Description:
The record is a 125-nucleotide RNA sequence from Cettia cetti, which matches "Small nucleolar RNA SNORD22" in Rfam. A reference for the family is Tycowski et al. (1996), "A mammalian gene with introns instead of exons generating stable RNA products", Nature. Pairs were carried over by alignment from the consensus structure, which was predicted with PFOLD. The match comes from Rfam's covariance-model search (66 bits).
[Rfam]
RNA sequence: CCCCCAUGAGGAAACCCUGCCGUGUCUGACCCCCCGGCGGGCCCAGGACCUGCAAAGGUGGAACCCCCUGGAGCCCCCGCGGGGAGAGGAGGACGAGCAGUCCCACAGGGGACGGUCUGAGGGGG
Numbered sequence: 001c002c003c004c005c006a007u008g009a010g011g012a013a014a015c016c017c018u019g020c021c022g023u024g025u026c027u028g029a030c031c032c033c034c035c036g037g038c039g040g041g042c043c044c045a046g047g048a049c050c051u052g053c054a055a056a057g058g059u060g061g062a063a064c065c066c067c068c069u070g071g072a073g074c075c076c077c078c079g080c081g082g083g084g085a086g087a088g089g090a091g092g093a094c095g096a097g098c099a100g101u102c103c104c105a106c107a108g109g110g111g112a113c114g115g116u117c118u119g120a121g122g123g124g125g
Base pairs, nucleotide, nucleotide: 001124002123003122004121